Shown here is a 143-nucleotide sequence from Thermomonospora cellulosilytica, a member of the family "c-di-AMP riboswitch aptamer (ydaO/yuaA leader)".
RNA sequence: GGACGACGGCCGCCGAGUCCGCUCCGACCACCGUCGAGCGGAGCCGGGGACCCACUGUUUCCGGGGUGAAUCCGCCUUGUGCGGUAGGGCGUCUCCUGGCCCGAACCCGUCAGCUAACCCGGUAGGCGUCAAGGAGAGGAGAA
Numbered sequence: 001g002g003a004c005g006a007c008g009g010c011c012g013c014c015g016a017g018u019c020c021g022c023u024c025c026g027a028c029c030a031c032c033g034u035c036g037a038g039c040g041g042a043g044c045c046g047g048g049g050a051c052c053c054a055c056u057g058u059u060u061c062c063g064g065g066g067u068g069a070a071u072c073c074g075c076c077u078u079g080u081g082c083g084g085u086a087g088g089g090c091g092u093c094u095c096c097u098g099g100c101c102c103g104a105a106c107c108c109g110u111c112a113g114c115u116a117a118c119c120c121g122g123u124a125g126g127c128g129u130c131a132a133g134g135a136g137a138g139g140a141g142a143a
Stems, first nucleotide, its partner, number of pairs: 011128004018042007043123006053063001064108003072084004087102004